[Rfam]
RNA sequence: AGAAUUUUUUGGCAAACUUGAUCGAAAGAUAAGGACGCAAAGCUAUGGGUUUAAGGACAAAUCGUCUAUGACUGCCAGGUUGCUCAA
Numbered sequence: 001a002g003a004a005u006u007u008u009u010u011g012g013c014a015a016a017c018u019u020g021a022u023c024g025a026a027a028g029a030u031a032a033g034g035a036c037g038c039a040a041a042g043c044u045a046u047g048g049g050u051u052u053a054a055g056g057a058c059a060a061a062u063c064g065u066c067u068a069u070g071a072c073u074g075c076c077a078g079g080u081u082g083c084u085c086a087a
Stems, first nucleotide, its partner, number of pairs: 012038002017033004022029002041081004046077003049072003056066003
Record summary: This 87-nucleotide sequence from Sporomusaceae bacterium FL31 belongs to the Rfam family "c-di-GMP-I riboswitch aptamer". GEMM was predicted in a large-scale screen for bacterial structured RNA regulatory elements. Genes associated with GEMM are involved in a diverse array of functions, including chemotaxis regulation, signal transduction, secretion and chitin. Pairs were carried over by alignment from the consensus structure, which is taken from published work.